Burkholderia RNA 11: a 122-nucleotide RNA from Rhizobacter sp. AJA081-3. Pairs were carried over by alignment from the consensus structure, which was predicted with RNAfold. Co-purified with Hfq, expression confirmed by Northern blot. Predicted target marZ. Overlaps coding sequence. It is annotated as a small RNA. Its family is annotated with protein binding in the Gene Ontology. For this family Rfam cites "Experimental identification of small non-coding regulatory RNAs in the opportunistic human pathogen Burkholderia cenocepacia J2315" (Ramos et al., Genomics, 2013).
RNA sequence: GCAACCUGAAGCUCGCACACGAGAGCAUCGUCGUGUUUCGCUCGCUGCUUGGCAUCUCGUGGAUGUGGUUCUUCGGCGCGGUGUUCCUGACGCAGUUCCCGGCCUUCGCGAAAGACGUGCUC
Numbered sequence: 001g002c003a004a005c006c007u008g009a010a011g012c013u014c015g016c017a018c019a020c021g022a023g024a025g026c027a028u029c030g031u032c033g034u035g036u037u038u039c040g041c042u043c044g045c046u047g048c049u050u051g052g053c054a055u056c057u058c059g060u061g062g063a064u065g066u067g068g069u070u071c072u073u074c075g076g077c078g079c080g081g082u083g084u085u086c087c088u089g090a091c092g093c094a095g096u097u098c099c100c101g102g103c104c105u106u107c108g109c110g111a112a113a114g115a116c117g118u119g120c121u122c
Stems, first nucleotide, its partner, number of pairs: 010049003014044002017042001021038003025034002051121005057115002060112001063105001065103001067099002071095002074092002077089002080087002
Dot-bracket structure: .........(((.((.(...(((.((......)).)))...)))..))).(((((.((.(..(.(.((..((.((.((.((....)))).)).))..))...).)......).)).))))).